[Rfam]
A member of the RNA family "GP20-b RNA" from Peptoniphilus indolicus, 62 nucleotides long.
The base pairs follow the family's consensus structure, which is taken from published work.
The family's RNA type in Rfam is cis-regulatory element.
The source organism's lineage runs through Bacteria, Tissierellia, Tissierellales, Peptoniphilus and Peptoniphilus indolicus.
It scores 41 bits against the family's covariance model.
RNA sequence: UGUCUUGGAAUGACGUAAAACUUAGCCAACCUGUGAGACUGUAACACUCGUAAAAAAACGUA
Dot-bracket structure: ((((..[[...))))..........]]......((((.........))))............